[Rfam]
RNA sequence: GAAGUUGGUCGGAUGGUCGCUGGAGCUUGAUUCUUCAGAGGAAAGUCCGGGCUCCAUAGAGUAAAGUGCUAGCUAACAGCUAGGUAUGGUGACAUAACGGAAAGUGCUACAGAGAUUUAGACCGCCUAUUUUUAAUAGGUAAGGGUGAGAAGGCGCGGUAAGAGCGCACCGCGCGAUUGGUGACAACCGUGGCAAGGUAAACCCCACUUGGAGCAAGCUCAAAUAGGCUGAUGAUGACGUUGCUCGCUGAGUUGGUGGGUAGAGUGCUAAAGCGUUUUGGCAACAAAACACGUAGAUGAAUGACCAUCUAUUACAGAACCCGGCUUAUAGACCGACUUCUUUU
Numbered sequence: 001g002a003a004g005u006u007g008g009u010c011g012g013a014u015g016g017u018c019g020c021u022g023g024a025g026c027u028u029g030a031u032u033c034u035u036c037a038g039a040g041g042a043a044a045g046u047c048c049g050g051g052c053u054c055c056a057u058a059g060a061g062u063a064a065a066g067u068g069c070u071a072g073c074u075a076a077c078a079g080c081u082a083g084g085u086a087u088g089g090u091g092a093c094a095u096a097a098c099g100g101a102a103a104g105u106g107c108u109a110c111a112g113a114g115a116u117u118u119a120g121a122c123c124g125c126c127u128a129u130u131u132u133u134a135a136u137a138g139g140u141a142a143g144g145g146u147g148a149g150a151a152g153g154c155g156c157g158g159u160a161a162g163a164g165c166g167c168a169c170c171g172c173g174c175g176a177u178u179g180g181u182g183a184c185a186a187c188c189g190u191g192g193c194a195a196g197g198u199a200a201a202c203c204c205c206a207c208u209u210g211g212a213g214c215a216a217g218c219u220c221a222a223a224u225a226g227g228c229u230g231a232u233g234a235u236g237a238c239g240u241u242g243c244u245c246g247c248u249g250a251g252u253u254g255g256u257g258g259g260u261a262g263a264g265u266g267c268u269a270a271a272g273c274g275u276u277u278u279g280g281c282a283a284c285a286a287a288a289c290a291c292g293u294a295g296a297u298g299a300a301u302g303a304c305c306a307u308c309u310a311u312u313a314c315a316g317a318a319c320c321c322g323g324c325u326u327a328u329a330g331a332c333c334g335a336c337u338u339c340u341u342u343u
Stems, first nucleotide, its partner, number of pairs: 001339010011328001012308007020038006043326003047323005052213004059245004064209005069083005084098001085096004099204002104202002106198003122144002124140007152170002155167003171193001172191004177186003217265004227256006238249001239247002272291001274289006
This 343-nucleotide RNA from Candidatus Ruthturnera calyptogenae belongs to the Rfam family "Bacterial RNase P class A". Rfam's curators put it in the seed alignment. Pairs were carried over by alignment from the consensus structure, which is taken from published work.